[Rfam]
RNA sequence: CUUUGUUAAUUUGUUUAGGGUCUGAAUAACUCAAAGAUUUUGUGUUGUCAUCAGCUUCAUCUCUUGUUCAACCCACGGGAUAGGAGUUAAAUAACAGCACUACAUUU
Dot-bracket structure: .........................................((((((.....((((((.((((.............))))..))))))......)))))).......

About this RNA:
Rfam assigns this 107-nucleotide sequence from Lupinus albus to the family "Small nucleolar RNA snoR97". A reference for the family is Marker et al. (2002), "Experimental RNomics: identification of 140 candidates for small non-messenger RNAs in the plant Arabidopsis thaliana", Curr Biol. The base pairs follow the family's consensus structure, which was predicted with WAR. The match comes from Rfam's covariance-model search (103 bits). Rfam classes the family as an H/ACA-box small nucleolar RNA. Its family is annotated with RNA processing and nucleolus in the Gene Ontology. Lineage of the source: Eukaryota > Viridiplantae > Mesangiospermae > Gunneridae > Lupinus.